[Rfam]
RNA sequence: CUGCCUUAAACUAAUGAGUAAGGAAAACAAAGCGAGUGGUGGGAGCCGCUCGCCGCGCCGAUAACAGCGUGCGCAAGAAUUUCUGGAGGGGUAAUAGGCUGGCCGAGCGUAGACGCUGCUUACUUUGCAGAACUCGCUUGGGCGGGCCUCCC
Numbered sequence: 001c002u003g004c005c006u007u008a009a010a011c012u013a014a015u016g017a018g019u020a021a022g023g024a025a026a027a028c029a030a031a032g033c034g035a036g037u038g039g040u041g042g043g044a045g046c047c048g049c050u051c052g053c054c055g056c057g058c059c060g061a062u063a064a065c066a067g068c069g070u071g072c073g074c075a076a077g078a079a080u081u082u083c084u085g086g087a088g089g090g091g092u093a094a095u096a097g098g099c100u101g102g103c104c105g106a107g108c109g110u111a112g113a114c115g116c117u118g119c120u121u122a123c124u125u126u127g128c129a130g131a132a133c134u135c136g137c138u139u140g141g142g143c144g145g146g147c148c149u150c151c152c
Base pairs, nucleotide, nucleotide: 004023005022006021007020008019032053033052034051035050036049037048038047039046054071055070056069057068058067090152091151096149097148098147099146100145102143104140105139107137108136109135116130117129118128119127
The record is a 152-nucleotide RNA from Morella rubra, which matches "U12 minor spliceosomal RNA" in Rfam. The literature on the family includes a 1997 paper in Trends Biochem Sci by Tarn and Steitz, "Pre-mRNA splicing: the discovery of a new spliceosome doubles the challenge". Pairs were carried over by alignment from the consensus structure. Rfam 15.1 lists 2,106 matches to the family in 1,170 species. Taxonomically the source falls in Morella (Eukaryota, Viridiplantae, Spermatophyta, rosids).